[Rfam]
RNA: Alphaproteobacterial sRNA BjrC1505
Organism: Roseibium alexandrii
RNA sequence: UUUAUUCAUUUACCAAUCAUUAAUCUUUCCAAAUUAUAAAUUUAUGCAUCCAGUCAUCUGGAUAGGAGUGGUUCAGACCACUCUGUUUGACGCCUCCCUGUUAAAGACUUAGAGCCGCAGCCGUGCGGCUCUUUUUUU
Numbered sequence: 001u002u003u004a005u006u007c008a009u010u011u012a013c014c015a016a017u018c019a020u021u022a023a024u025c026u027u028u029c030c031a032a033a034u035u036a037u038a039a040a041u042u043u044a045u046g047c048a049u050c051c052a053g054u055c056a057u058c059u060g061g062a063u064a065g066g067a068g069u070g071g072u073u074c075a076g077a078c079c080a081c082u083c084u085g086u087u088u089g090a091c092g093c094c095u096c097c098c099u100g101u102u103a104a105a106g107a108c109u110u111a112g113a114g115c116c117g118c119a120g121c122c123g124u125g126c127g128g129c130u131c132u133u134u135u136u137u138u
Stems, first nucleotide, its partner, number of pairs: 002044001004042001006015001021036004026031001048063004066083006089102004111132009